Shown here is a 175-nucleotide sequence from Hydrogenibacillus schlegelii, a member of the family "Group II catalytic intron D1-D4-5". Lineage of the source: Bacteria > Bacillati > Bacillota > Thermicanales > Hydrogenibacillus. Group II introns are found in rRNA, tRNA and mRNA of organelles in fungi, plants and protists, and also in mRNA in bacteria. On this family, see Bonen and Vogel, Trends Genet 2001: "The ins and outs of group II introns".
[Rfam]
RNA sequence: CCUAACUUGCUUCCCGACGGCAGGAAUGAGAGGCCCAUGCCGCCUCGAAACUGCCGACCUGAGACUCCUGCAGGCGUCAGAAGGUACCGGCCUUCUGGGGUCUGAUGCCAGGUAAAGUCGGCGUCAAGGCACCUACAGCCGUAAGGCCAUGGUGCAUACGCCGGGGUGCCAUAAG
Numbered sequence: 001c002c003u004a005a006c007u008u009g010c011u012u013c014c015c016g017a018c019g020g021c022a023g024g025a026a027u028g029a030g031a032g033g034c035c036c037a038u039g040c041c042g043c044c045u046c047g048a049a050a051c052u053g054c055c056g057a058c059c060u061g062a063g064a065c066u067c068c069u070g071c072a073g074g075c076g077u078c079a080g081a082a083g084g085u086a087c088c089g090g091c092c093u094u095c096u097g098g099g100g101u102c103u104g105a106u107g108c109c110a111g112g113u114a115a116a117g118u119c120g121g122c123g124u125c126a127a128g129g130c131a132c133c134u135a136c137a138g139c140c141g142u143a144a145g146g147c148c149a150u151g152g153u154g155c156a157u158a159c160g161c162c163g164g165g166g167u168g169c170c171a172u173a174a175g
Stems, first nucleotide, its partner, number of pairs: 018056006032045002057167004067112004071104005077098008119163005129155005138147002